[Rfam]
RNA: ZMP/ZTP riboswitch aptamer (pfl RNA motif)
Nucleotides: 081
Base pairs, nucleotide, nucleotide: 004050005049006048007047008046009045010044011043012042015039016038017069018068019067020066021065024035025034026033027032058076060074061073062072
Number, partner (000 for none) and nucleotide at each position: 001000a002000a003000g004050g005049c006048u007047a008046u009045a010044u011043g012042u013000a014000a015039c016038u017069g018068g019067c020066g021065a022000a023000u024035g025034c026033g027032g028000a029000u030000a031000a032027c033026c034025g035024u036000g037000a038016g039015g040000g041000a042012g043011c044010a045009u046008a047007u048006a049005g050004u051000g052000u053000c054000g055000u056000u057000u058076u059000a060074g061073c062072c063000g064000u065021u066020c067019g068018c069017c070000u071000g072062g073061g074060c075000a076058g077000a078000g079000g080000u081000a